The record is a 98-nucleotide RNA sequence from Ananas comosus, which matches "Small nucleolar RNA Z161/Z228" in Rfam. For this family Rfam cites "The high diversity of snoRNAs in plants: identification and comparative study of 120 snoRNA genes from Oryza sativa" (Chen et al., Nucleic Acids Res, 2003). A search with the family's covariance model found it, with a score of 74 bits. The source organism's lineage runs through Eukaryota, Tracheophyta, Liliopsida, Bromelioideae and Ananas. Rfam classes the family as a C/D-box small nucleolar RNA. Its family is annotated with RNA processing and nucleolus in the Gene Ontology. Clan: SNORD35 clan.
RNA sequence: GGGCCAUGUGAUGAGAAUGCUUUAGUAAUAACUCACGACGGUCGUCUGAGACGCUUUUAAUGUGUCUAUAUUGAUGCAGACAUCAUUCUCUGAUGCCC
Numbered sequence: 001g002g003g004c005c006a007u008g009u010g011a012u013g014a015g016a017a018u019g020c021u022u023u024a025g026u027a028a029u030a031a032c033u034c035a036c037g038a039c040g041g042u043c044g045u046c047u048g049a050g051a052c053g054c055u056u057u058u059a060a061u062g063u064g065u066c067u068a069u070a071u072u073g074a075u076g077c078a079g080a081c082a083u084c085a086u087u088c089u090c091u092g093a094u095g096c097c098c
Stems, first nucleotide, its partner, number of pairs: 001098004052064003